[Rfam]
RNA: Small nucleolar RNA Z102/R77
RNA sequence: GAAUGAAAUGAUGAAUGUUUGUUUCCCUAUUGGUUUGACUGCCAGAAUGAUGGCAAUUUGUAUUAGCUCUAUCUGACCAUUC
Numbered sequence: 001g002a003a004u005g006a007a008a009u010g011a012u013g014a015a016u017g018u019u020u021g022u023u024u025c026c027c028u029a030u031u032g033g034u035u036u037g038a039c040u041g042c043c044a045g046a047a048u049g050a051u052g053g054c055a056a057u058u059u060g061u062a063u064u065a066g067c068u069c070u071a072u073c074u075g076a077c078c079a080u081u082c
Stems, first nucleotide, its partner, number of pairs: 002081004037057001040055004